Shown here is a 58-nucleotide sequence from Helianthus grosseserratus, a member of the family "Plastid-psbA-3 3UTR RNA". The source organism's lineage runs through Eukaryota, Tracheophyta, Mesangiospermae, asterids and Helianthus. Plastid psbA-3 is a non-coding RNA (ncRNA) present in plastids. It was identified in inverted repeat sequences in the 3 prime untranslate region (3UTR) of photosystem II quinone-binding protein (psbA). The family is grouped with related families in Rfam's "Plastid-psbA 3UTR RNA clan".

[Rfam]
RNA sequence: AAAAGGAGCAAUAACGCCCUCUUGUUUUAUCAAGAGGGAAGCUAUUGCUCCUUUUUUA
Numbered sequence: 001a002a003a004a005g006g007a008g009c010a011a012u013a014a015c016g017c018c019c020u021c022u023u024g025u026u027u028u029a030u031c032a033a034g035a036g037g038g039a040a041g042c043u044a045u046u047g048c049u050c051c052u053u054u055u056u057u058a
Stems, first nucleotide, its partner, number of pairs: 002054012015041001019036006